The family of this 108-nucleotide sequence from Verticillium alfalfae is "Small nucleolar RNA Z13/snr52". Rfam links the family to the GO terms RNA processing and nucleolus. It scores 88 bits against the family's covariance model. Rfam 15.1 lists 1,203 matches to the family in 866 species. By type it is a C/D-box small nucleolar RNA. Pairs were carried over by alignment from the consensus structure, which was predicted with PFOLD.
RNA sequence: GUGCCUUUCAUGAUGAAAUAUUGCGGAUGUAAACCUUUAUCGUCUUGUCGGAAAAGCGCAAAAACGAUGUCGAAAUUUUCCGUUGCCUUCCUUCUGAUUUGAAUGGCU
Numbered sequence: 001g002u003g004c005c006u007u008u009c010a011u012g013a014u015g016a017a018a019u020a021u022u023g024c025g026g027a028u029g030u031a032a033a034c035c036u037u038u039a040u041c042g043u044c045u046u047g048u049c050g051g052a053a054a055a056g057c058g059c060a061a062a063a064a065c066g067a068u069g070u071c072g073a074a075a076u077u078u079u080c081c082g083u084u085g086c087c088u089u090c091c092u093u094c095u096g097a098u099u100u101g102a103a104u105g106g107c108u
Stems, first nucleotide, its partner, number of pairs: 003107003024082004